Shown here is a 117-nucleotide sequence from Bailinhaonella thermotolerans, a member of the family "TPP riboswitch aptamer (THI element)". Gene Ontology term of the family: thiamine pyrophosphate binding. It scores 58 bits against the family's covariance model.
RNA sequence: AUCGACCGUCGCGGGAGCCCGGGGCAACCGGGCUGAGAGGGCAGAUGUAGGCGCUGCCGACCGCUGGAACCUGACCGGGUAAUGCCGGCGUAGGGAGUAUUUCGGAUGACCGUCUUU
Numbered sequence: 001a002u003c004g005a006c007c008g009u010c011g012c013g014g015g016a017g018c019c020c021g022g023g024g025c026a027a028c029c030g031g032g033c034u035g036a037g038a039g040g041g042c043a044g045a046u047g048u049a050g051g052c053g054c055u056g057c058c059g060a061c062c063g064c065u066g067g068a069a070c071c072u073g074a075c076c077g078g079g080u081a082a083u084g085c086c087g088g089c090g091u092a093g094g095g096a097g098u099a100u101u102u103c104g105g106a107u108g109a110c111c112g113u114c115u116u117u
Base pairs, nucleotide, nucleotide: 006105007104008103011064012063013062014061017033018032019031020030021029040058041057042056043055044054070094071093072092073091075088076087077086078085
The source organism's lineage runs through Bacteria, Bacillati, Actinomycetes, Streptosporangiales and Bailinhaonella.
Rfam describes the family as follows. Vitamin B(1) in its active form thiamin pyrophosphate (TPP) is an essential coenzyme that is synthesised by coupling of pyrimidine and thiazole moieties in bacteria.